RNA sequence: UAAGAGUGCAGAUAGAGAUAUGCUGUAUACCUGCAUAACCGAAUUAACGUUUAAGCGACAUGUAAUGUCGUCGGCCGCAGGGACCGCCAUUUGGCGGUUAUCAUUCCUUAUCAUAUUUAGAUCAACAGAUCCCAUCAAACCUCUUAACCAAUGCGUAACACGAUGGGCCUGACCCCGGAGCAAUCCGGGGUUUUAUAUUUCG
Numbered sequence: 001u002a003a004g005a006g007u008g009c010a011g012a013u014a015g016a017g018a019u020a021u022g023c024u025g026u027a028u029a030c031c032u033g034c035a036u037a038a039c040c041g042a043a044u045u046a047a048c049g050u051u052u053a054a055g056c057g058a059c060a061u062g063u064a065a066u067g068u069c070g071u072c073g074g075c076c077g078c079a080g081g082g083a084c085c086g087c088c089a090u091u092u093g094g095c096g097g098u099u100a101u102c103a104u105u106c107c108u109u110a111u112c113a114u115a116u117u118u119a120g121a122u123c124a125a126c127a128g129a130u131c132c133c134a135u136c137a138a139a140c141c142u143c144u145u146a147a148c149c150a151a152u153g154c155g156u157a158a159c160a161c162g163a164u165g166g167g168c169c170u171g172a173c174c175c176c177g178g179a180g181c182a183a184u185c186c187g188g189g190g191u192u193u194u195a196u197a198u199u200u201c202g
Stems, first nucleotide, its partner, number of pairs: 007027005012021003030081005039074003042051003055071006171192009
DUF3800-I RNA: a 202-nucleotide RNA from Hungatella hathewayi.
Actinobacteria, Firmicutes, Fusobacteria, Proteobacteria (1 example), Tenericutes (2 examples).